RNA sequence: UGUAGUUACUGGCAAACUAGGUGAAAGCCUAGGACGCAAAGCUUCCGGUCUAAAGGCUCUGUAUUAUUUUACAGAACCCACGAUAGCGGGGUUGCUUCA
Number, nucleotide and partner (000 for none) at each position: 001u000002g000003u000004a000005g000006u000007u000008a000009c000010u000011g000012g037013c036014a000015a000016a000017c032018u031019a030020g029021g028022u027023g000024a000025a000026a000027g022028c021029c020030u019031a018032g017033g000034a000035c000036g013037c012038a000039a000040a093041g092042c091043u090044u000045c089046c088047g087048g084049u083050c082051u000052a000053a000054a000055g078056g077057c000058u075059c074060u073061g072062u071063a070064u000065u000066a000067u000068u000069u000070u063071a062072c061073a060074g059075a058076a000077c056078c055079c000080a000081c000082g050083a049084u048085a000086g000087c047088g046089g045090g043091g042092u041093u040094g000095c000096u000097u000098c000099a000
The family of this 99-nucleotide RNA sequence from Pseudoalteromonas luteoviolacea is "c-di-GMP-I riboswitch aptamer". Rfam 15.1 lists 5,092 matches to the family in 1,772 species. The match comes from Rfam's covariance-model search (69 bits). GEMM was predicted in a large-scale screen for bacterial structured RNA regulatory elements.